[Rfam]
RNA sequence: GAAUGGUUUGUGAAUGAUGAUUCAAUUAGAUGUGUGAAUGGUUUCAUUAUGAGCUCAAAAACUCUAUUUGGCAAUUUUUCUGACAUUGCCAUUC
Numbered sequence: 001g002a003a004u005g006g007u008u009u010g011u012g013a014a015u016g017a018u019g020a021u022u023c024a025a026u027u028a029g030a031u032g033u034g035u036g037a038a039u040g041g042u043u044u045c046a047u048u049a050u051g052a053g054c055u056c057a058a059a060a061a062c063u064c065u066a067u068u069u070g071g072c073a074a075u076u077u078u079u080c081u082g083a084c085a086u087u088g089c090c091a092u093u094c
Stems, first nucleotide, its partner, number of pairs: 001094007011085002